[Rfam]
Rfam assigns this 99-nucleotide sequence from Paenibacillus psychroresistens to the family "Guanidine-I riboswitch aptamer". Rfam 15.1 lists 1,509 matches to the family in 1,281 species. The organism belongs to Paenibacillus, within Bacteria. This family represents a conserved RNA structure found upstream of the ykkC and yxkD genes in Bacillus subtilis and related genes in other bacteria. A reference for the family is Barrick et al. (2004), "New RNA motifs suggest an expanded scope for riboswitches in bacterial genetic control", Proc Natl Acad Sci U S A.

RNA sequence: CAAAUUGUUACCUAGGGUUCCACGGAUUUAUCCGGUUCGGUCCAAGAGGAAACACACAGUCCAAAGCUGUGCACACGGAGGGAUAAAAGCCCGGGAGGA
Numbered sequence: 001c002a003a004a005u006u007g008u009u010a011c012c013u014a015g016g017g018u019u020c021c022a023c024g025g026a027u028u029u030a031u032c033c034g035g036u037u038c039g040g041u042c043c044a045a046g047a048g049g050a051a052a053c054a055c056a057c058a059g060u061c062c063a064a065a066g067c068u069g070u071g072c073a074c075a076c077g078g079a080g081g082g083a084u085a086a087a088a089g090c091c092c093g094g095g096a097g098g099a
Base pairs, nucleotide, nucleotide: 007053008052009051011049012048015043016042020040021039022037023034024033025032026031055071056070057069058068059067060066074094076097080092081091082090